Rfam assigns this 129-nucleotide sequence from Marivivens niveibacter to the family "FMN riboswitch aptamer (RFN element)". The source organism's lineage runs through Bacteria, Pseudomonadati, Pseudomonadota, Rhodobacterales and Marivivens.
RNA sequence: GUACGUUCUCAGGGCGGGGCGAAAUUCCCCACCGGCGGUUAAAGCCCGCGAGCGCCUACGCAUGUAGGGUCAGCAGAUCCGGUGAAACUCCGGGGCCGACGGUUAAAGUCCGGAUGAAAGAGAACCAGA
Numbered sequence: 001g002u003a004c005g006u007u008c009u010c011a012g013g014g015c016g017g018g019g020c021g022a023a024a025u026u027c028c029c030c031a032c033c034g035g036c037g038g039u040u041a042a043a044g045c046c047c048g049c050g051a052g053c054g055c056c057u058a059c060g061c062a063u064g065u066a067g068g069g070u071c072a073g074c075a076g077a078u079c080c081g082g083u084g085a086a087a088c089u090c091c092g093g094g095g096c097c098g099a100c101g102g103u104u105a106a107a108g109u110c111c112g113g114a115u116g117a118a119a120g121a122g123a124a125c126c127a128g129a
Stems, first nucleotide, its partner, number of pairs: 005125006017029003031109002033098002035049004044096002052074002078094005100112003